[Rfam]
RNA: glmS glucosamine-6-phosphate activated ribozyme aptamer
Organism: Qingrenia yutianensis
RNA sequence: UGCAUAAUUUAAGCGCCUGAACCGAUUUAUUCGGCUGACGAGGACGGGGCUAAUCGAAAAUUCGGCGGAUACCCCGCGCUUUGCACGAGCGUGAGCAACUUUUUAAAACCGCGGAGCAAUCGGCGGCACAAAGAAUUUUGCAGUGUGAAAA
Number, nucleotide and partner (000 for none) at each position: 001u000002g000003c000004a000005u000006a000007a000008u000009u000010u000011a000012a000013g000014c000015g000016c000017c000018u000019g000020a036021a000022c034023c033024g032025a031026u000027u000028u000029a000030u000031u025032c024033g023034g022035c000036u020037g000038a000039c000040g000041a000042g000043g000044a000045c076046g075047g074048g073049g072050c000051u000052a000053a000054u065055c064056g063057a062058a000059a000060a000061u000062u057063c056064g055065g054066c000067g000068g000069a000070u000071a000072c049073c048074c047075c046076g045077c091078g090079c089080u088081u087082u000083g000084c000085a000086c000087g081088a080089g079090c078091g077092u000093g000094a000095g141096c140097a139098a138099c000100u000101u135102u000103u000104u000105a000106a000107a000108a000109c126110c125111g124112c123113g000114g121115a120116g000117c000118a000119a000120u115121c114122g000123g112124c111125g110126g109127c000128a000129c000130a000131a000132a000133g000134a000135a101136u000137u000138u098139u097140g096141c095142a000143g000144u000145g000146u000147g000148a000149a000150a000151a000